A member of the RNA family "Small nucleolar RNA SNORA74" from Sinocyclocheilus grahami, 198 nucleotides long. By type it is an H/ACA-box small nucleolar RNA. Rfam 15.1 lists 1,348 matches to the family in 628 species.

[Rfam]
RNA sequence: CCCAGCGGUAGUCAGCUGUGCAGGCCAGUCCAUGCCUGAGCUAGUGUUACUCUGCUGGGAGAGAGAGGUGCUGCCGUGUGUGCUCCUGCAGGUUUGGCUGUUUUAGUGACUCCUGCUGUGUAGCACAGGUCAAGCCUUGUCCUCUGAGAGUGGUCUGUGCUCACACAAUGAGGCAGACCUAGUCUGGGGGCGAACACA
Numbered sequence: 001c002c003c004a005g006c007g008g009u010a011g012u013c014a015g016c017u018g019u020g021c022a023g024g025c026c027a028g029u030c031c032a033u034g035c036c037u038g039a040g041c042u043a044g045u046g047u048u049a050c051u052c053u054g055c056u057g058g059g060a061g062a063g064a065g066a067g068g069u070g071c072u073g074c075c076g077u078g079u080g081u082g083c084u085c086c087u088g089c090a091g092g093u094u095u096g097g098c099u100g101u102u103u104u105a106g107u108g109a110c111u112c113c114u115g116c117u118g119u120g121u122a123g124c125a126c127a128g129g130u131c132a133a134g135c136c137u138u139g140u141c142c143u144c145u146g147a148g149a150g151u152g153g154u155c156u157g158u159g160c161u162c163a164c165a166c167a168a169u170g171a172g173g174c175a176g177a178c179c180u181a182g183u184c185u186g187g188g189g190g191c192g193a194a195c196a197c198a
Stems, first nucleotide, its partner, number of pairs: 001059008011050002015045004021038005068135002072132002075129001080126005086118001088116003092112001094109001097107003137193006143186001152179003156175003160172004
For this family Rfam cites "The family of box ACA small nucleolar RNAs is defined by an evolutionarily conserved secondary structure and ubiquitous sequence elements essential for RNA accumulation" (Ganot et al., Genes Dev, 1997). From the family's description: U19 belongs to the H/ACA class of snoRNAs. snoRNAs bind a number of proteins (including dyskerin, Gar1p and Nop10p in the case of the H/ACA class) to form snoRNP complexes. This class are thought to guide the sites of modification of uridines to pseudouridines by forming direct base pairing interactions with substrate RNAs. Targets may include ribosomal and spliceosomal RNAs but the exact functions of many snoRNAs, including U19, are not confirmed. A search with the family's covariance model found it, with a score of 89 bits.